[Rfam]
RNA sequence: ACGAUGUUCCGCUGCAAACAUUCAGUAUUUGCAAGAGCGUCCA
Numbered sequence: 001a002c003g004a005u006g007u008u009c010c011g012c013u014g015c016a017a018a019c020a021u022u023c024a025g026u027a028u029u030u031g032c033a034a035g036a037g038c039g040u041c042c043a
Stems, first nucleotide, its partner, number of pairs: 003041007013033006
Dot-bracket structure: ..(((((((...((((((.........)))))).)))))))..
Shown here is a 43-nucleotide sequence from Peribacillus muralis, a member of the family "Ribosomal protein L19 leader".
The base pairs follow the family's consensus structure, which was predicted with CMfinder.
Taxonomically the source falls in Peribacillus (Bacteria, Bacillota, Caryophanales, Bacillaceae).
Gene Ontology term of the family: regulation of gene expression.
It is annotated as a cis-regulatory leader.
The literature on the family includes a 1994 paper in Prog Nucleic Acid Res Mol Biol by Zengel and Lindahl, "Diverse mechanisms for regulating ribosomal protein synthesis in Escherichia coli".